[Rfam]
Source information: This 148-nucleotide sequence from Populus trichocarpa belongs to the Rfam family "MIR480 microRNA precursor family". It is one of the family's seed sequences. The base pairs follow the family's consensus structure, which was predicted with WAR. Rfam links the family to the GO terms miRNA-mediated post-transcriptional gene silencing and RISC complex.

RNA sequence: CAAUCUAUUUAGGGCAGAUUCUUAUUUAGUUAUGGCAGACUCAAACCUGAAUGCUCAGAAUCACUUGUUAUUACAAGCUCGAAUAUAUCAUUGACAUUGAAAAACAGUGGACAACUACUGUGUGAAUAAUAACUUUUUGAAAUUUUAA
Numbered sequence: 001c002a003a004u005c006u007a008u009u010u011a012g013g014g015c016a017g018a019u020u021c022u023u024a025u026u027u028a029g030u031u032a033u034g035g036c037a038g039a040c041u042c043a044a045a046c047c048u049g050a051a052u053g054c055u056c057a058g059a060a061u062c063a064c065u066u067g068u069u070a071u072u073a074c075a076a077g078c079u080c081g082a083a084u085a086u087a088u089c090a091u092u093g094a095c096a097u098u099g100a101a102a103a104a105c106a107g108u109g110g111a112c113a114a115c116u117a118c119u120g121u122g123u124g125a126a127u128a129a130u131a132a133c134u135u136u137u138u139g140a141a142a143u144u145u146u147a148a
Base pairs, nucleotide, nucleotide: 007143008141009140012137014135019125023122024121025120027117028116029115030114031113